Rfam assigns this 128-nucleotide sequence from Panicum miliaceum to the family "Small nucleolar RNA snoR111". It scores 45 bits against the family's covariance model. The organism belongs to Panicum sect. Panicum, within Eukaryota. The family's RNA type in Rfam is H/ACA-box small nucleolar RNA. The family has 6 seed sequences and 533 matches in Rfam 15.1.
RNA sequence: AUCGUGGCGGGAGCACGAACACCUUCCGUGCGCCGCCGCCUUCUCAAGGAGGGGAUAGAUCCACGCGUCAAGAAAUCGUUUCAGUUGCCAUGGCUCCAGUAGGCAAUAUGAUUGUUGCUUGACUACAG
Numbered sequence: 001a002u003c004g005u006g007g008c009g010g011g012a013g014c015a016c017g018a019a020c021a022c023c024u025u026c027c028g029u030g031c032g033c034c035g036c037c038g039c040c041u042u043c044u045c046a047a048g049g050a051g052g053g054g055a056u057a058g059a060u061c062c063a064c065g066c067g068u069c070a071a072g073a074a075a076u077c078g079u080u081u082c083a084g085u086u087g088c089c090a091u092g093g094c095u096c097c098a099g100u101a102g103g104c105a106a107u108a109u110g111a112u113u114g115u116u117g118c119u120u121g122a123c124u125a126c127a128g
Stems, first nucleotide, its partner, number of pairs: 006040005011034001013031004017026001067123001069121004075112004084107006